[Rfam]
RNA sequence: CGUGGAGACGCGCCCAAUCCCCCACGGGGGAGCCGGGGACCCGCCGGUGGCCGCCAACCACCACUGGGGUGAAUCCGAGCGCGACGCUCGGUAGGGCUGCUCCGGCCCGAACCCGUCAGCUAACCCGGUAGGCGUCGAUGAGAGGAGCU
Numbered sequence: 001c002g003u004g005g006a007g008a009c010g011c012g013c014c015c016a017a018u019c020c021c022c023c024a025c026g027g028g029g030g031a032g033c034c035g036g037g038g039a040c041c042c043g044c045c046g047g048u049g050g051c052c053g054c055c056a057a058c059c060a061c062c063a064c065u066g067g068g069g070u071g072a073a074u075c076c077g078a079g080c081g082c083g084a085c086g087c088u089c090g091g092u093a094g095g096g097c098u099g100c101u102c103c104g105g106c107c108c109g110a111a112c113c114c115g116u117c118a119g120c121u122a123a124c125c126c127g128g129u130a131g132g133c134g135u136c137g138a139u140g141a142g143a144g145g146a147g148c149u
Stems, first nucleotide, its partner, number of pairs: 011134004018031003032129006042066002067114003075091004094108004
RNA: c-di-AMP riboswitch aptamer (ydaO/yuaA leader)